[Rfam]
RNA sequence: GUGUGUAUUGACAGGUGGUGGAACAAAUAUGAGUUUAUAAAUAUUAAUUAGACAAACUAAAACUCAUAUUUAGUUCUACCUCCUGUUGAAGCACACA
Numbered sequence: 001g002u003g004u005g006u007a008u009u010g011a012c013a014g015g016u017g018g019u020g021g022a023a024c025a026a027a028u029a030u031g032a033g034u035u036u037a038u039a040a041a042u043a044u045u046a047a048u049u050a051g052a053c054a055a056a057c058u059a060a061a062a063c064u065c066a067u068a069u070u071u072a073g074u075u076c077u078a079c080c081u082c083c084u085g086u087u088g089a090a091g092c093a094c095a096c097a
Stems, first nucleotide, its partner, number of pairs: 001096003005092002008089008017080008026070011
The record is a 97-nucleotide RNA from Arabidopsis lyrata, which matches "MIR9560 microRNA precursor family" in Rfam. The family's consensus secondary structure was predicted with RNAalifold. Rfam links the family to the GO terms RISC complex and miRNA-mediated post-transcriptional gene silencing. It scores 101 bits against the family's covariance model.